[Rfam]
RNA sequence: AACGUUUGCUGGGGGGGCUUUAGCCGGCUGAGAAGGAAGAGAUUCCUGACCCUUGGAACCUGAUGCGGAUAAUGCCGCCGCAGGGAAGCGGAUAUAAAUUCAG
Numbered sequence: 001a002a003c004g005u006u007u008g009c010u011g012g013g014g015g016g017g018c019u020u021u022a023g024c025c026g027g028c029u030g031a032g033a034a035g036g037a038a039g040a041g042a043u044u045c046c047u048g049a050c051c052c053u054u055g056g057a058a059c060c061u062g063a064u065g066c067g068g069a070u071a072a073u074g075c076c077g078c079c080g081c082a083g084g085g086a087a088g089c090g091g092a093u094a095u096a097a098a099u100u101c102a103g
Base pairs, nucleotide, nucleotide: 006091007090008089009088010087011053012052013051014050016047017028018027019026035046036045037044038043059084060083061082062081065078066077067076068075